[Rfam]
RNA sequence: AAACACGAUGCGGGAGAGCUCGCCCCAGGGUGAGCACCGAAGGAGCAAGCCUCCCCGCCAAUCUCUCAGGUCCAGUACCGCAUCGAGAAG
Numbered sequence: 001a002a003a004c005a006c007g008a009u010g011c012g013g014g015a016g017a018g019c020u021c022g023c024c025c026c027a028g029g030g031u032g033a034g035c036a037c038c039g040a041a042g043g044a045g046c047a048a049g050c051c052u053c054c055c056c057g058c059c060a061a062u063c064u065c066u067c068a069g070g071u072c073c074a075g076u077a078c079c080g081c082a083u084c085g086a087g088a089a090g
Stems, first nucleotide, its partner, number of pairs: 006085008019034004036071003039067002043065003049058002
This 90-nucleotide RNA sequence from Leifsonia sp. AK011 belongs to the Rfam family "Glycine riboswitch aptamer". NCBI's taxonomy places the organism under Bacteria, Bacillati, Actinomycetota, Actinomycetes, Leifsonia. The pairing is the family consensus, mapped onto this sequence.